[Rfam]
RNA: BsrG
Organism: Paenibacillus wynnii
RNA sequence: AGCAAUAGAAGGCUUGCAAGGGUGGCCGGCUAAUCUCCCGGAAGGGAGGUGAUGCCAUGGAGGUUUAUCAAGCGUUGUCACUGAUGUUCAUGUUUGGCAUGUUCAUUAUUGCUCUGCUAAAUUACCUCAAAAAGAAAUAGGCCGCCCUCUGUCCAGGAUAGCGACCUAUUUCUGUGGGUAGUGCCUGUUUAAAGCCGCCGCCCUUAAAAGCGGCUAUUGCACCGGGGAGUCGUGUUAGCGCACGGCUC
Numbered sequence: 001a002g003c004a005a006u007a008g009a010a011g012g013c014u015u016g017c018a019a020g021g022g023u024g025g026c027c028g029g030c031u032a033a034u035c036u037c038c039c040g041g042a043a044g045g046g047a048g049g050u051g052a053u054g055c056c057a058u059g060g061a062g063g064u065u066u067a068u069c070a071a072g073c074g075u076u077g078u079c080a081c082u083g084a085u086g087u088u089c090a091u092g093u094u095u096g097g098c099a100u101g102u103u104c105a106u107u108a109u110u111g112c113u114c115u116g117c118u119a120a121a122u123u124a125c126c127u128c129a130a131a132a133a134g135a136a137a138u139a140g141g142c143c144g145c146c147c148u149c150u151g152u153c154c155a156g157g158a159u160a161g162c163g164a165c166c167u168a169u170u171u172c173u174g175u176g177g178g179u180a181g182u183g184c185c186u187g188u189u190u191a192a193a194g195c196c197g198c199c200g201c202c203c204u205u206a207a208a209a210g211c212g213g214c215u216a217u218u219g220c221a222c223c224g225g226g227g228a229g230u231c232g233u234g235u236u237a238g239c240g241c242a243c244g245g246c247u248c
Base pairs, nucleotide, nucleotide: 002220003219004218005217007215008214011196012195013194014193015192019148020147021146022145024142026140031052033050035048036047037046038045039044062118063117064116072087073086074085096113097112098111099110162174163172164171198213199212200211201210227248228247229246230245231244232243233242234241235240